MIR8024 microRNA precursor family: an 81-nucleotide RNA sequence from Solanum tuberosum. The organism belongs to Solanum, within Eukaryota.
RNA sequence: UUGGAAGAUUUUAAUGCUUCAACUUGUAUACUUGGAGAAUUUGAAGACUUCAACUUUUGGAGAUAUUUGAAAAUUUCAUCU
Numbered sequence: 001u002u003g004g005a006a007g008a009u010u011u012u013a014a015u016g017c018u019u020c021a022a023c024u025u026g027u028a029u030a031c032u033u034g035g036a037g038a039a040u041u042u043g044a045a046g047a048c049u050u051c052a053a054c055u056u057u058u059g060g061a062g063a064u065a066u067u068u069g070a071a072a073a074u075u076u077c078a079u080c081u
Base pairs, nucleotide, nucleotide: 002078003077004076005075006074009071010070011069013067014066017062018061019060020059021058028056032053033052034051035050036049037048
Dot-bracket structure: .(((((..(((.((..(((((......(...((((((..........))))))..).)))))...)).)))..)))))...